A member of the RNA family "Small nucleolar RNA SNORA72" from Galemys pyrenaicus, 128 nucleotides long. Taxonomically the source falls in Galemys (Eukaryota, Vertebrata, Gnathostomata, Boreoeutheria). Rfam describes the family as follows. U72 is a member of the H/ACA class of snoRNAs. The snoRNA gene is located in intron 4 of the ribosomal L30 protein gene in human, mouse and chicken.
[Rfam]
RNA sequence: UGGCAAAUAUUAUCACUGUUCUGAUUUUCUGAUAGAGCAGGCUAAACAUUUGCUAUAUUAAGACCAUGCAUAUGUCCCUAGGCUUAGUUCUUACCCUAGGUCUGGUUUUAUAGAUGCUGGUAAUAAAC
Number, nucleotide and partner (000 for none) at each position: 001u000002g000003g053004c052005a051006a000007a000008u000009a000010u000011u000012a000013u000014c000015a000016c040017u039018g038019u037020u036021c035022u034023g000024a000025u000026u000027u000028u000029c000030u000031g000032a000033u000034a022035g021036a020037g019038c018039a017040g016041g000042c000043u000044a000045a000046a000047c000048a000049u000050u000051u005052g004053c003054u000055a000056u000057a000058u000059u000060a000061a000062g000063a121064c120065c119066a118067u000068g117069c116070a000071u000072a000073u000074g000075u000076c000077c000078c105079u104080a103081g102082g101083c100084u099085u098086a097087g096088u000089u000090c000091u000092u000093a000094c000095c000096c087097u086098a085099g084100g083101u082102c081103u080104g079105g078106u000107u000108u000109u000110a000111u000112a000113g000114a000115u000116g069117c068118u066119g065120g064121u063122a000123a000124u000125a000126a000127a000128c000

Description:
A search with the family's covariance model found it, with a score of 127 bits.